[Rfam]
RNA sequence: CAAAAACCGCGUUAGGUGAGGUUCCUGUACAGAUAUAUGCUGCUACCCGGAAACAUCGAGAGAUGCCAAUGGGUUAACAGGUAUUGCCGAAUAUAAGGCUCUACUUAAUGUAGCUGGUUUAUCCAAAGCUGUGCAGUGCUAAAGCUCAACGGGUGAAUAUGU
Numbered sequence: 001c002a003a004a005a006a007c008c009g010c011g012u013u014a015g016g017u018g019a020g021g022u023u024c025c026u027g028u029a030c031a032g033a034u035a036u037a038u039g040c041u042g043c044u045a046c047c048c049g050g051a052a053a054c055a056u057c058g059a060g061a062g063a064u065g066c067c068a069a070u071g072g073g074u075u076a077a078c079a080g081g082u083a084u085u086g087c088c089g090a091a092u093a094u095a096a097g098g099c100u101c102u103a104c105u106u107a108a109u110g111u112a113g114c115u116g117g118u119u120u121a122u123c124c125a126a127a128g129c130u131g132u133g134c135a136g137u138g139c140u141a142a143a144g145c146u147c148a149a150c151g152g153g154u155g156a157a158u159a160u161g162u
Base pairs, nucleotide, nucleotide: 005158008155009154010153011150012149013096015146016145017144020140021139022138025136026135027134028133029132030131031130032129039114040113041112042111043110045074046073047072048071049070054065055064056063057062080105081104082103083102086099087098088097116124117123